[Rfam]
RNA sequence: GUCUCUGAUGAUGAUUAAACAAAUAACUUUCGUUCUUCUGAGUUGAUAAUGCGGAAUUUCAUGGAGACCUGAACUGAAGAGGC
Numbered sequence: 001g002u003c004u005c006u007g008a009u010g011a012u013g014a015u016u017a018a019a020c021a022a023a024u025a026a027c028u029u030u031c032g033u034u035c036u037u038c039u040g041a042g043u044u045g046a047u048a049a050u051g052c053g054g055a056a057u058u059u060c061a062u063g064g065a066g067a068c069c070u071g072a073a074c075u076g077a078a079g080a081g082g083c
Base pairs, nucleotide, nucleotide: 003081004080005079006078
Rfam assigns this 83-nucleotide sequence from Cicer arietinum to the family "Small nucleolar RNA Z159/U59". Pairs were carried over by alignment from the consensus structure, which was predicted with PFOLD. The family is grouped with related families in Rfam's "SNORD59 clan". It is annotated as a C/D-box small nucleolar RNA. A reference for the family is Chen et al. (2003), "The high diversity of snoRNAs in plants: identification and comparative study of 120 snoRNA genes from Oryza sativa", Nucleic Acids Res. It scores 71 bits against the family's covariance model.